The record is a 386-nucleotide RNA from Thiovulum sp. ES, which matches "Group I catalytic intron" in Rfam. A reference for the family is Cech (1990), "Self-splicing of group I introns", Annu Rev Biochem. It scores 56 bits against the family's covariance model. Group I catalytic introns are large self-splicing ribozymes. They catalyse their own excision from mRNA, tRNA and rRNA precursors in a wide range of organisms. The core secondary structure consists of 9 paired regions (P1-P9). These fold to essentially two domains - the P4-P6 domain (formed from the stacking of P5, P4, P6 and P6a helices) and the P3-P9 domain (formed from the P8, P3, P7 and P9 helices). Lineage of the source: Bacteria > Campylobacterota > Epsilonproteobacteria > Sulfurimonadaceae > Thiovulum.

RNA sequence: CAAAUGGGCUUACAACCUUUGGGAAGUUAUGCUAAAUAACACUUGGUUUAAAUAAGGCAGACCAAGUAAAACCUCUUGAAUUUCUGGAAAAUCUAAGUUGGUUCUUUAAUAAAUGUUUUUUGGAAUCAAGGUUUUAACCUUGCCUAAAUUAUACGAGACUAAAGUCUCGAUUCCGUAUCAAAUUUACAUUAAGAAUUAAUAAGACAAUCAGAAGCUAAGGAGAUAUUGAGUAUAAAAAAUUUAAGCUUAAUAUCUGAAAGUUCAACGACUAUCGAAAGACACGAAAGUGAAUCAAGUAGAGUACAUCACAAGUUUAUGGUGGUGGAAGCGGGAGGGUCUCUAAAAUUAGAGACAUGAUAUAGUCUGAACUGUAUAGAAAUAUGCAG
Numbered sequence: 001c002a003a004a005u006g007g008g009c010u011u012a013c014a015a016c017c018u019u020u021g022g023g024a025a026g027u028u029a030u031g032c033u034a035a036a037u038a039a040c041a042c043u044u045g046g047u048u049u050a051a052a053u054a055a056g057g058c059a060g061a062c063c064a065a066g067u068a069a070a071a072c073c074u075c076u077u078g079a080a081u082u083u084c085u086g087g088a089a090a091a092u093c094u095a096a097g098u099u100g101g102u103u104c105u106u107u108a109a110u111a112a113a114u115g116u117u118u119u120u121u122g123g124a125a126u127c128a129a130g131g132u133u134u135u136a137a138c139c140u141u142g143c144c145u146a147a148a149u150u151a152u153a154c155g156a157g158a159c160u161a162a163a164g165u166c167u168c169g170a171u172u173c174c175g176u177a178u179c180a181a182a183u184u185u186a187c188a189u190u191a192a193g194a195a196u197u198a199a200u201a202a203g204a205c206a207a208u209c210a211g212a213a214g215c216u217a218a219g220g221a222g223a224u225a226u227u228g229a230g231u232a233u234a235a236a237a238a239a240u241u242u243a244a245g246c247u248u249a250a251u252a253u254c255u256g257a258a259a260g261u262u263c264a265a266c267g268a269c270u271a272u273c274g275a276a277a278g279a280c281a282c283g284a285a286a287g288u289g290a291a292u293c294a295a296g297u298a299g300a301g302u303a304c305a306u307c308a309c310a311a312g313u314u315u316a317u318g319g320u321g322g323u324g325g326a327a328g329c330g331g332g333a334g335g336g337u338c339u340c341u342a343a344a345a346u347u348a349g350a351g352a353c354a355u356g357a358u359a360u361a362g363u364c365u366g367a368a369c370u371g372u373a374u375a376g377a378a379a380u381a382u383g384c385a386g
Stems, first nucleotide, its partner, number of pairs: 001008001017031001019029001072335004077330002082213006092204003096200001214261002220255001222254001226250005265365001267364005338351005371384005